[Rfam]
RNA sequence: UGGUAGAUGCACCUUGAUCUUCAACUCCCCUGCUUGGCUAACAGCCACAGGGGUUUUUUAU
Dot-bracket structure: .(((......))).............((((((.(.(........).)))))))........